[Rfam]
RNA sequence: GUGCGAUUUCAGGGGAGUCAGAAGAGUCUGACUGAGAUUAGGACCAAAUGAAUGUCUUUGACCCUUAUACCUGAUCUGGGUAAUUCCAGCGUAGGGAGUAUAAAUAAACUGAUA
Numbered sequence: 001g002u003g004c005g006a007u008u009u010c011a012g013g014g015g016a017g018u019c020a021g022a023a024g025a026g027u028c029u030g031a032c033u034g035a036g037a038u039u040a041g042g043a044c045c046a047a048a049u050g051a052a053u054g055u056c057u058u059u060g061a062c063c064c065u066u067a068u069a070c071c072u073g074a075u076c077u078g079g080g081u082a083a084u085u086c087c088a089g090c091g092u093a094g095g096g097a098g099u100a101u102a103a104a105u106a107a108a109c110u111g112a113u114a
Base pairs, nucleotide, nucleotide: 008100010098011065012064013063014062016059017032018031019030020029021028040057041056042055070095071094072093073092076089077088078087079086
About this RNA
A member of the RNA family "TPP riboswitch aptamer (THI element)" from Anaeromicropila populeti, 114 nucleotides long. Taxonomically the source falls in Anaeromicropila (Bacteria, Bacillati, Clostridia, Lachnospirales). A search with the family's covariance model found it, with a score of 64 bits.